About this RNA: TPP riboswitch aptamer (THI element): a 110-nucleotide RNA from Leucobacter sp. cx-87. About the family: Vitamin B(1) in its active form thiamin pyrophosphate (TPP) is an essential coenzyme that is synthesised by coupling of pyrimidine and thiazole moieties in bacteria. The previously detected thiamin-regulatory element, thi box was extended, resulting in a new, highly conserved RNA secondary structure, the THI element, which is widely distributed in eubacteria and also occurs in some archaea. Analysis of operon structures identified a large number of new candidate thiamin-regulated genes, mostly transporters, in various prokaryotic organisms. The THI element is a riboswitch that directly binds to TPP to regulate gene expression through a variety of mechanisms in archaea, bacteria and eukaryotes. through a variety of mechanisms in archaea, bacteria and eukaryotes. A search with the family's covariance model found it, with a score of 61 bits. The organism belongs to Leucobacter, within Bacteria.
RNA sequence: CGAGGUAUCCACGGGAGCCCGCACGCGGCGGGCUGAGAGGGAGCGCGCGCGCUUCGACCGUUCAACCUGAUCUGGGUCAUACCAGCGGAGGAAGGAACCUCAGAAUGAUG
Numbered sequence: 001c002g003a004g005g006u007a008u009c010c011a012c013g014g015g016a017g018c019c020c021g022c023a024c025g026c027g028g029c030g031g032g033c034u035g036a037g038a039g040g041g042a043g044c045g046c047g048c049g050c051g052c053u054u055c056g057a058c059c060g061u062u063c064a065a066c067c068u069g070a071u072c073u074g075g076g077u078c079a080u081a082c083c084a085g086c087g088g089a090g091g092a093a094g095g096a097a098c099c100u101c102a103g104a105a106u107g108a109u110g
Stems, first nucleotide, its partner, number of pairs: 008096003011061004017033005040055005066091003072085004